[Rfam]
RNA sequence: AAGAUACGCAAGGGGUACUGGAAGUCAAUUCUUCUGGUUGAGAUUCACCCUCAGAACCUGAUACGGUUAAUACCGUCGUAGGGAUGUGUUACUAUAUGUUU
Numbered sequence: 001a002a003g004a005u006a007c008g009c010a011a012g013g014g015g016u017a018c019u020g021g022a023a024g025u026c027a028a029u030u031c032u033u034c035u036g037g038u039u040g041a042g043a044u045u046c047a048c049c050c051u052c053a054g055a056a057c058c059u060g061a062u063a064c065g066g067u068u069a070a071u072a073c074c075g076u077c078g079u080a081g082g083g084a085u086g087u088g089u090u091a092c093u094a095u096a097u098g099u100u101u
Base pairs, nucleotide, nucleotide: 006089007088008087009086010085011051012050013049014048017038018037019036020035021034022033023032024031057082058081059080060079063076064075065074066073
A member of the RNA family "TPP riboswitch aptamer (THI element)" from Floricoccus tropicus, 101 nucleotides long. From the family's description: Vitamin B(1) in its active form thiamin pyrophosphate (TPP) is an essential coenzyme that is synthesised by coupling of pyrimidine and thiazole moieties in bacteria. It scores 72 bits against the family's covariance model.